[Rfam]
RNA sequence: GGGGCUAUAGCUCAGUUGGUUAGAGCCGCGGACUCAUAAUCCGCUGGUCGCGGGUUCAAGCCCCGCUGGCCCCA
Numbered sequence: 001g002g003g004g005c006u007a008u009a010g011c012u013c014a015g016u017u018g019g020u021u022a023g024a025g026c027c028g029c030g031g032a033c034u035c036a037u038a039a040u041c042c043g044c045u046g047g048u049c050g051c052g053g054g055u056u057c058a059a060g061c062c063c064c065g066c067u068g069g070c071c072c073c074a
Stems, first nucleotide, its partner, number of pairs: 001073007010026004028044005050066005

A member of the RNA family "tRNA" from Corynebacterium glyciniphilum, 74 nucleotides long. The literature on the family includes a 1997 paper in Nucleic Acids Res by Lowe and Eddy, "tRNAscan-SE: a program for improved detection of transfer RNA genes in genomic sequence". By type it is a transfer RNA. Taxonomically the source falls in Corynebacterium glyciniphilum (Bacteria, Mycobacteriales, Corynebacteriaceae, Corynebacterium).